[Rfam]
RNA sequence: GGGAAGGCGCUAUAGCCAAGUGGUUACGGCGACAGAUUAGAAAUCUGUUCCUCUUUGAGGGCGCAGGUUCGAAUCCUGCUGGCGUCGUCUAUUCUGUUU
Numbered sequence: 001g002g003g004a005a006g007g008c009g010c011u012a013u014a015g016c017c018a019a020g021u022g023g024u025u026a027c028g029g030c031g032a033c034a035g036a037u038u039a040g041a042a043a044u045c046u047g048u049u050c051c052u053c054u055u056u057g058a059g060g061g062c063g064c065a066g067g068u069u070c071g072a073a074u075c076c077u078g079c080u081g082g083c084g085u086c087g088u089c090u091a092u093u094c095u096g097u098u099u
Stems, first nucleotide, its partner, number of pairs: 002094003006090002015083004020079004030071003
RNA: Vault RNA
Organism: Leucocoprinus leucothites